[Rfam]
RNA sequence: GUAGAUGGUACUGCAAGGUUUCUGCCUUACCGGCAGUACAGAUUUCAGCGUUGCGUCCAACCGUAACGCAACCGGCUCGCGCCGGACUUUGCUAAUCAGCCAGUGGAUGUCACUGGU
Numbered sequence: 001g002u003a004g005a006u007g008g009u010a011c012u013g014c015a016a017g018g019u020u021u022c023u024g025c026c027u028u029a030c031c032g033g034c035a036g037u038a039c040a041g042a043u044u045u046c047a048g049c050g051u052u053g054c055g056u057c058c059a060a061c062c063g064u065a066a067c068g069c070a071a072c073c074g075g076c077u078c079g080c081g082c083c084g085g086a087c088u089u090u091g092c093u094a095a096u097c098a099g100c101c102a103g104u105g106g107a108u109g110u111c112a113c114u115g116g117u
Stems, first nucleotide, its partner, number of pairs: 010019003021038001022036005048069008072085004099117006
Pseudomon-groES RNA: a 117-nucleotide RNA from Pseudomonas sp. TTU2014-080ASC.
It scores 59 bits against the family's covariance model.
The family's RNA type in Rfam is cis-regulatory element.
The base pairs follow the family's consensus structure, which is taken from published work.